The family of this 71-nucleotide sequence from Trema andersonii is "Plastid-ycf2 5UTR RNA".
For this family Rfam cites "Retrograde signaling in plants: A critical review focusing on the GUN pathway and beyond" (Richter et al., Plant Commun, 2023).
The organism belongs to Trema, within Eukaryota.
Pairs were carried over by alignment from the consensus structure, which was predicted with LocARNA.
Plastid ycf2 is a non-coding RNA (ncRNA) recognised in plastids. It was found in the prime untranslated region (5UTR) of ycf2 genes, it presents a tRNA-like motif which suggests it can be involved in mRNA maturation, particularly involved in defining the precise 5' end of the transcript.
It scores 73 bits against the family's covariance model.
RNA sequence: AUGCAUCCAGUAGGAAUUGUAAGAAUUCGCUAAUUAUGAGUUGGGUGCUUUAACCAUUCAGCCAUGGAUGC
Numbered sequence: 001a002u003g004c005a006u007c008c009a010g011u012a013g014g015a016a017u018u019g020u021a022a023g024a025a026u027u028c029g030c031u032a033a034u035u036a037u038g039a040g041u042u043g044g045g046u047g048c049u050u051u052a053a054c055c056a057u058u059c060a061g062c063c064a065u066g067g068a069u070g071c
Stems, first nucleotide, its partner, number of pairs: 003071006036065003040062008